Record summary:
This 63-nucleotide sequence from Theropithecus gelada belongs to the Rfam family "U7 small nuclear RNA". The family's consensus secondary structure was predicted with PFOLD. NCBI's taxonomy places the organism under Eukaryota, Metazoa, Amniota, Euarchontoglires, Theropithecus. On this family, see Mowry and Steitz, Science 1987: "Identification of the human U7 snRNP as one of several factors involved in the 3' end maturation of histone premessenger RNA's".
[Rfam]
RNA sequence: AAGUGUUACAGCUCUUUUAAAAUUUAUCUAAGAGGUUUUCAAUUUUUUAACUGGAAAACUCCC
Numbered sequence: 001a002a003g004u005g006u007u008a009c010a011g012c013u014c015u016u017u018u019a020a021a022a023u024u025u026a027u028c029u030a031a032g033a034g035g036u037u038u039u040c041a042a043u044u045u046u047u048u049a050a051c052u053g054g055a056a057a058a059c060u061c062c063c
Stems, first nucleotide, its partner, number of pairs: 034060003037056005043050002